[Rfam]
RNA sequence: AAGAUGCAUUAGGAAAGGGGUUAUCCCUGCCAACCUGCAUACCGUGCGAAGGUGGUAAUAUAUGCGGCCAAAAGGCAAAAAUUAGGUCUCA
Numbered sequence: 001a002a003g004a005u006g007c008a009u010u011a012g013g014a015a016a017g018g019g020g021u022u023a024u025c026c027c028u029g030c031c032a033a034c035c036u037g038c039a040u041a042c043c044g045u046g047c048g049a050a051g052g053u054g055g056u057a058a059u060a061u062a063u064g065c066g067g068c069c070a071a072a073a074g075g076c077a078a079a080a081a082u083u084a085g086g087u088c089u090c091a
Base pairs, nucleotide, nucleotide: 006065007064008063009062015028017027018026019025020024029056030055031054034052035051036050037047038046039045041087042086043085067076068075069074

The family of this 91-nucleotide RNA is "SAM-I/IV (S-adenosyl methionine) riboswitch aptamer". On this family, see Weinberg et al., RNA 2008: "The aptamer core of SAM-IV riboswitches mimics the ligand-binding site of SAM-I riboswitches".